[Rfam]
RNA: permuted transfer-messenger RNA
Organism: Magnetospirillum fulvum
RNA sequence: GACGCUAAACGCUUUGCGGAAUAGACGUUGCGGACCCGGGGGCGGUACCCGGCGCCUCCACCAUUUCGACCCGGCCGGAUCGGUUGGGCAUCUCGGGGGCGAAACAGGAUCGACGCGCGCAGUAAAGGCAAAGUUUGCGUUCGGCAUGAUACCACCGUCAUCGGGUCAAUCCUAACAAGUGCCAACGACAACGUUGCUCUUGCCGCUGCGGCUUAA
Numbered sequence: 001g002a003c004g005c006u007a008a009a010c011g012c013u014u015u016g017c018g019g020a021a022u023a024g025a026c027g028u029u030g031c032g033g034a035c036c037c038g039g040g041g042g043c044g045g046u047a048c049c050c051g052g053c054g055c056c057u058c059c060a061c062c063a064u065u066u067c068g069a070c071c072c073g074g075c076c077g078g079a080u081c082g083g084u085u086g087g088g089c090a091u092c093u094c095g096g097g098g099g100c101g102a103a104a105c106a107g108g109a110u111c112g113a114c115g116c117g118c119g120c121a122g123u124a125a126a127g128g129c130a131a132a133g134u135u136u137g138c139g140u141u142c143g144g145c146a147u148g149a150u151a152c153c154a155c156c157g158u159c160a161u162c163g164g165g166u167c168a169a170u171c172c173u174a175a176c177a178a179g180u181g182c183c184a185a186c187g188a189c190a191a192c193g194u195u196g197c198u199c200u201u202g203c204c205g206c207u208g209c210g211g212c213u214u215a216a
Stems, first nucleotide, its partner, number of pairs: 001141005014131004026119003030116003036052005053101007142157003